The family of this 101-nucleotide RNA sequence from Pseudooceanicola pacificus is "TPP riboswitch aptamer (THI element)". The base pairs follow the family's consensus structure, which is taken from published work. NCBI's taxonomy places the organism under Bacteria, Pseudomonadota, Alphaproteobacteria, Paracoccaceae, Pseudooceanicola.
RNA sequence: UCGAAUCUGUUGGGGUGCCCCUCGGGGCUGAGAUGCGGAAACGCGAACCCAUUGAACCUGAUCCGGCUAGAACCGGCGUAGGAAACAGUGACCGUGUCCGC
Numbered sequence: 001u002c003g004a005a006u007c008u009g010u011u012g013g014g015g016u017g018c019c020c021c022u023c024g025g026g027g028c029u030g031a032g033a034u035g036c037g038g039a040a041a042c043g044c045g046a047a048c049c050c051a052u053u054g055a056a057c058c059u060g061a062u063c064c065g066g067c068u069a070g071a072a073c074c075g076g077c078g079u080a081g082g083a084a085a086c087a088g089u090g091a092c093c094g095u096g097u098c099c100g101c
Base pairs, nucleotide, nucleotide: 007088008087009086010085011051012050013049014048016045017028018027019026020025035044036043037042057082058081059080060079063076064075065074066073